RNA: FuFi-1 RNA
RNA sequence: UCUAACAGCUAAAGGUAUACUUUGUGGCAGAACUGCAACUGCCUAAGUGUUAGAAGUCUCACAGAAAAGAAUGGUACACAACAUUCUUAGGUGUGAACCUUGCAAGAUAAUUAAGUAAACAAAUGUAGCAAGUAAGUGUUGUAGUGUGUAAUACAACAUUUUUUG
Numbered sequence: 001u002c003u004a005a006c007a008g009c010u011a012a013a014g015g016u017a018u019a020c021u022u023u024g025u026g027g028c029a030g031a032a033c034u035g036c037a038a039c040u041g042c043c044u045a046a047g048u049g050u051u052a053g054a055a056g057u058c059u060c061a062c063a064g065a066a067a068a069g070a071a072u073g074g075u076a077c078a079c080a081a082c083a084u085u086c087u088u089a090g091g092u093g094u095g096a097a098c099c100u101u102g103c104a105a106g107a108u109a110a111u112u113a114a115g116u117a118a119a120c121a122a123a124u125g126u127a128g129c130a131a132g133u134a135a136g137u138g139u140u141g142u143a144g145u146g147u148g149u150a151a152u153a154c155a156a157c158a159u160u161u162u163u164u165g
Base pairs, nucleotide, nucleotide: 001054002053003052004051005050006049007048026043027042028041029040030039033128034127035126036125037124056108057107058106059105067088068087069086070085071084072083073082075150076149077148078147079146080145089100090099091098092097132163134161135160136159137158138157139156140155141154142153143152